[Rfam]
Notes:
The record is a 126-nucleotide sequence from Fundicoccus ignavus, which matches "FMN riboswitch aptamer (RFN element)" in Rfam. Taxonomically the source falls in Fundicoccus (Bacteria, Bacillati, Bacillota, Bacilli). Its family is annotated with FMN binding in the Gene Ontology.
Nucleotides: 126
Base pairs, nucleotide, nucleotide: 003124006121007120008119009118010117017029018028019027031107032106033097034096035048036047037046038045043095044094051072052071053070077093078092079091080090081089099110100109101108
Number, partner (000 for none) and nucleotide at each position: 001000a002000u003124a004000c005000g006121u007120c008119u009118u010117c011000g012000g013000g014000g015000c016000a017029g018028g019027g020000u021000g022000a023000a024000a025000u026000u027019c028018c029017c030000g031107a032106c033097c034096g035048g036047u037046g038045g039000u040000a041000u042000a043095g044094u045038c046037c047036a048035c049000g050000a051072c052071g053070a054000a055000g056000u057000a058000a059000u060000a061000u062000u063000u064000a065000u066000u067000a068000c069000u070053u071052u072051g073000a074000u075000g076000a077093a078092c079091u080090g081089g082000u083000g084000u085000g086000a087000u088000u089081c090080c091079a092078g093077u094044a095043c096034c097033g098000a099110c100109a101108g102000u103000a104000a105000a106032g107031u108101c109100u110099g111000a112000u113000a114000g115000u116000a117010g118009a119008a120007g121006a122000g123000a124003u125000u126000g
Pairs were carried over by alignment from the consensus structure, which is taken from published work. Rfam describes the family as follows. The RFN element is a highly conserved domain that is found frequently in the 5'-untranslated regions of prokaryotic mRNAs that encode for flavin mononucleotide (FMN) biosynthesis and transport proteins.